Description
This 300-nucleotide sequence from Pelagibacterales bacterium SAG-MED23 belongs to the Rfam family "Alphaproteobacteria transfer-messenger RNA". Rfam describes the family as follows. Bacterial tmRNA, also known as 10Sa RNA or SsrA, is named for its dual tRNA and mRNA-like properties.
[Rfam]
RNA sequence: UUUGUUGAAUCUCUUUUAAAUGCUUUUAUAUUAUUAAUGUUGGUUUUCCAACUAUGACGAUAAACGAAUUUCGUAAUAACCAUUGCGGACGUGGGGGCAGUACCCACCACCUCCACCAUUACAACUCAUGGGGGUGAUAUAGAUUCGACGGAUGACUAAAGGCUAUUCUUUUGUUCGGAAUUGUUCCACCGUAACGGGCUAAUUUAUAAUUGCUAACGAAAGUUACGCACUUGCUGCUUAAUUAACUUUGUUAAUUAGGUAAACGGGGUCUGGGGCACCUGGCAACAGAACGCCCCCUAU
Numbered sequence: 001u002u003u004g005u006u007g008a009a010u011c012u013c014u015u016u017u018a019a020a021u022g023c024u025u026u027u028a029u030a031u032u033a034u035u036a037a038u039g040u041u042g043g044u045u046u047u048c049c050a051a052c053u054a055u056g057a058c059g060a061u062a063a064a065c066g067a068a069u070u071u072c073g074u075a076a077u078a079a080c081c082a083u084u085g086c087g088g089a090c091g092u093g094g095g096g097g098c099a100g101u102a103c104c105c106a107c108c109a110c111c112u113c114c115a116c117c118a119u120u121a122c123a124a125c126u127c128a129u130g131g132g133g134g135u136g137a138u139a140u141a142g143a144u145u146c147g148a149c150g151g152a153u154g155a156c157u158a159a160a161g162g163c164u165a166u167u168c169u170u171u172u173g174u175u176c177g178g179a180a181u182u183g184u185u186c187c188a189c190c191g192u193a194a195c196g197g198g199c200u201a202a203u204u205u206a207u208a209a210u211u212g213c214u215a216a217c218g219a220a221a222g223u224u225a226c227g228c229a230c231u232u233g234c235u236g237c238u239u240a241a242u243u244a245a246c247u248u249u250g251u252u253a254a255u256u257a258g259g260u261a262a263a264c265g266g267g268g269u270c271u272g273g274g275g276c277a278c279c280u281g282g283c284a285a286c287a288g289a290a291c292g293c294c295c296c297c298u299a300u
Stems, first nucleotide, its partner, number of pairs: 039052005056175005066168004072162001081154003086150002091107005108136007176191003181201001183199001185198003266280004272297004276292001
Source information: The family's RNA type in Rfam is non-coding RNA gene.